The family of this 265-nucleotide part of an RNA from Azoarcus sp. KH32C is "Bacterial large subunit ribosomal RNA". A search with the family's covariance model found it, with a score of 2826 bits. Lineage of the source: Bacteria > Pseudomonadota > Betaproteobacteria > Zoogloeaceae > Azoarcus.
RNA sequence: GGAAGUUUGAGAGGACCUGCUCCUAGUACGAGAGGACCGGAGUGGACGUACCUCUGGUGUACCGGUUGUGACGCCAGUCGCAUCGCCGGGUAGCUAAGUACGGAAGAGAUAACCGCUGAAAGCAUCUAAGCGGGAAACUCGCCUCAAGAUGAGACUUCCCCGGGGCCUCGAGCCCCCUGAAGGGUCGUUGAAGACCACAACGUUGAUAGGUCGGGUGUGGAAGCGCAGUAAUGCGUUAAGCUAACCGAUACUAAUUGCCCGUGCG
Numbered sequence: 001g002g003a004a005g006u007u008u009g010a011g012a013g014g015a016c017c018u019g020c021u022c023c024u025a026g027u028a029c030g031a032g033a034g035g036a037c038c039g040g041a042g043u044g045g046a047c048g049u050a051c052c053u054c055u056g057g058u059g060u061a062c063c064g065g066u067u068g069u070g071a072c073g074c075c076a077g078u079c080g081c082a083u084c085g086c087c088g089g090g091u092a093g094c095u096a097a098g099u100a101c102g103g104a105a106g107a108g109a110u111a112a113c114c115g116c117u118g119a120a121a122g123c124a125u126c127u128a129a130g131c132g133g134g135a136a137a138c139u140c141g142c143c144u145c146a147a148g149a150u151g152a153g154a155c156u157u158c159c160c161c162g163g164g165g166c167c168u169c170g171a172g173c174c175c176c177c178u179g180a181a182g183g184g185u186c187g188u189u190g191a192a193g194a195c196c197a198c199a200a201c202g203u204u205g206a207u208a209g210g211u212c213g214g215g216u217g218u219g220g221a222a223g224c225g226c227a228g229u230a231a232u233g234c235g236u237u238a239a240g241c242u243a244a245c246c247g248a249u250a251c252u253a254a255u256u257g258c259c260c261g262u263g264c265g
Stems, first nucleotide, its partner, number of pairs: 001159008011145004017045007047102005055096003062089005067082006106140003113133005162177003179262001182260004186202005207253003210249005217241001220237001223236005